Shown here is an 83-nucleotide sequence from Ureibacillus massiliensis, a member of the family "c-di-GMP-I riboswitch aptamer". Lineage of the source: Bacteria > Bacilli > Caryophanales > Caryophanaceae > Ureibacillus massiliensis. The family's consensus secondary structure is taken from published work.
[Rfam]
RNA sequence: UUCCGAAAAAGGCAAAUUUGUUGAAAGACGAAGACGCAAAGCCACAGACCUAAGGCUUUUGCUAAGGUGGCUGGGUUGCUGAA
Number, nucleotide and partner (000 for none) at each position: 001u000002u000003c000004c000005g000006a000007a000008a000009a000010a000011g000012g037013c036014a000015a000016a000017u032018u031019u030020g029021u028022u027023g000024a000025a000026a000027g022028a021029c020030g019031a018032a017033g000034a000035c000036g013037c012038a000039a000040a077041g076042c075043c074044a000045c073046a072047g071048a068049c067050c066051u000052a000053a000054g000055g062056c061057u000058u000059u000060u000061g056062c055063u000064a000065a000066g050067g049068u048069g000070g000071c047072u046073g045074g043075g042076u041077u040078g000079c000080u000081g000082a000083a000